[Rfam]
Shown here is a 165-nucleotide RNA from Castor canadensis, a member of the family "U1 spliceosomal RNA". By type it is a spliceosomal small nuclear RNA. The family's consensus secondary structure is taken from published work. NCBI's taxonomy places the organism under Eukaryota, Gnathostomata, Teleostomi, Sarcopterygii, Castor.
RNA sequence: AUAUUUACUUGGCAGAGUGGAUACCAUGAUCAUGAAGGUGAUUUUCCAAGGGUGAGGCUUAUCCAUUGUAUUCUGGAUGUGCUGGCUCCUGCAAUUUUCCCAAAUGUGGGGAAUUCAGUUGCAUAAUUUGUGGCAGUAGGGGACUGAGUUCAUGCUCUGCUCUGG
Number, nucleotide and partner (000 for none) at each position: 001a000002u000003a000004u000005u000006u000007a000008c000009u000010u000011g000012g122013c121014a120015g119016a000017g047018u000019g045020g044021a043022u000023a042024c000025c040026a039027u038028g000029a000030u000031c000032a000033u000034g000035a000036a000037g000038g027039u026040g025041a000042u023043u021044u020045u019046c000047c017048a000049a090050g089051g088052g087053u000054g086055a000056g083057g082058c081059u000060u079061a078062u077063c076064c075065a000066u000067u000068g000069u000070a000071u000072u000073c000074u000075g064076g063077a062078u061079g060080u000081g058082c057083u056084g000085g000086c054087u052088c051089c050090u049091g000092c000093a000094a115095u113096u112097u111098u000099c109100c108101c000102a000103a000104a000105u000106g000107u000108g100109g099110g000111g097112a096113a095114u000115u094116c000117a000118g000119u015120u014121g013122c012123a000124u000125a000126a000127u000128u000129u000130g000131u000132g000133g000134c000135a000136g000137u000138a000139g163140g162141g161142g160143a000144c000145u000146g157147a156148g155149u000150u000151c000152a000153u000154g000155c148156u147157c146158u000159g000160c142161u141162c140163u139164g000165g000